Shown here is a 76-nucleotide sequence from Alligator sinensis, a member of the family "Mammalian CPEB3 ribozyme". The source organism's lineage runs through Eukaryota, Metazoa, Sarcopterygii, Archosauria and Alligator.

[Rfam]
RNA sequence: GUUGCAAGUUUGAGGCAACAGCAGAAACGCUUGUGGAGUGGCCAUGUCAGAUUCCAACAAAUCUGUGAAUUCUGCU
Numbered sequence: 001g002u003u004g005c006a007a008g009u010u011u012g013a014g015g016c017a018a019c020a021g022c023a024g025a026a027a028c029g030c031u032u033g034u035g036g037a038g039u040g041g042c043c044a045u046g047u048c049a050g051a052u053u054c055c056a057a058c059a060a061a062u063c064u065g066u067g068a069a070u071u072c073u074g075c076u
Base pairs, nucleotide, nucleotide: 014043015042016041020076021075022074023073024072025071026070027039028038048065049064050063051062052061053060